About this RNA:
Rfam assigns this 106-nucleotide RNA from Ideonella livida to the family "c-di-GMP-I riboswitch aptamer".
[Rfam]
RNA sequence: UUGUGAACAGGGCUCACCCGUGCGAAAGCCGGGGUCGCAAAGCUUCCGGUCUACCGCCACCCCCAUCCCCCGCGGACGAGGUGGCCAGGACAGCGGGGCCGCCACA
Numbered sequence: 001u002u003g004u005g006a007a008c009a010g011g012g013c014u015c016a017c018c019c020g021u022g023c024g025a026a027a028g029c030c031g032g033g034g035u036c037g038c039a040a041a042g043c044u045u046c047c048g049g050u051c052u053a054c055c056g057c058c059a060c061c062c063c064c065a066u067c068c069c070c071c072g073c074g075g076a077c078g079a080g081g082u083g084g085c086c087a088g089g090a091c092a093g094c095g096g097g098g099c100c101g102c103c104a105c106a
Stems, first nucleotide, its partner, number of pairs: 012038002017033004022029002042099003046096003049091003056085006
Rfam's curators write: GEMM was predicted in a large-scale screen for bacterial structured RNA regulatory elements. Rfam links the family to the GO term cyclic-di-GMP binding.